A member of the RNA family "Sense overlapping transcript RNA 0042 (sot)" from Haloferax volcanii, 172 nucleotides long.

RNA sequence: AGAUAACUCCGAGUCCUCACGGUGAGGAUAGGAGUAACGGCUGUGUGGCACAGCCAUCGGUACACCUGUUCGACUCAGAGAGCGGUUGCUUUGCACCGCGAGAACAGGUCGUGUCGUAGACUAGCAAAUAUCCCACCUGCGGUACGGGAAGCCCGGUCGUUCACGACGGGGA
Numbered sequence: 001a002g003a004u005a006a007c008u009c010c011g012a013g014u015c016c017u018c019a020c021g022g023u024g025a026g027g028a029u030a031g032g033a034g035u036a037a038c039g040g041c042u043g044u045g046u047g048g049c050a051c052a053g054c055c056a057u058c059g060g061u062a063c064a065c066c067u068g069u070u071c072g073a074c075u076c077a078g079a080g081a082g083c084g085g086u087u088g089c090u091u092u093g094c095a096c097c098g099c100g101a102g103a104a105c106a107g108g109u110c111g112u113g114u115c116g117u118a119g120a121c122u123a124g125c126a127a128a129u130a131u132c133c134c135a136c137c138u139g140c141g142g143u144a145c146g147g148g149a150a151g152c153c154c155g156g157u158c159g160u161u162c163a164c165g166a167c168g169g170g171g172a
Base pairs, nucleotide, nucleotide: 004037007034008033009032010031013029014028015027016026017025018024019023039055040054041053042052043051058116059115060114061113062112063111065108066107067106068105069104070103071102084097085096086095088094089093131149132148133147134146136142137141152171153170154169156167157166158165159164
About the family: It is associated with IS1341-type transposase (tnpB) genes, at the 3'-end in H. salinarum NRC-1. The tetraloop structural motif may be functional. The source organism's lineage runs through Archaea, Methanobacteriati, Methanobacteriota, Halobacteria and Haloferax volcanii. The family's consensus secondary structure was predicted with RNAfold. The match comes from Rfam's covariance-model search (98 bits).